RNA sequence: GCGACAUGCCCGUUCCGGGCAUUUCCUCCCUAGACUUGGGGCCGCGUUUCGACGCGGCCCUUUUUUUGCGUCGCG
Numbered sequence: 001g002c003g004a005c006a007u008g009c010c011c012g013u014u015c016c017g018g019g020c021a022u023u024u025c026c027u028c029c030c031u032a033g034a035c036u037u038g039g040g041g042c043c044g045c046g047u048u049u050c051g052a053c054g055c056g057g058c059c060c061u062u063u064u065u066u067u068g069c070g071u072c073g074c075g
Stems, first nucleotide, its partner, number of pairs: 008020004039060009

Notes:
The record is a 75-nucleotide RNA from Halovulum marinum, which matches "Makes More Granules Regulator RNA (mmgR)" in Rfam. By type it is a small RNA. It scores 62 bits against the family's covariance model. The source organism's lineage runs through Bacteria, Pseudomonadati, Pseudomonadota, Paracoccaceae and Halovulum. The pairing is the family consensus, mapped onto this sequence.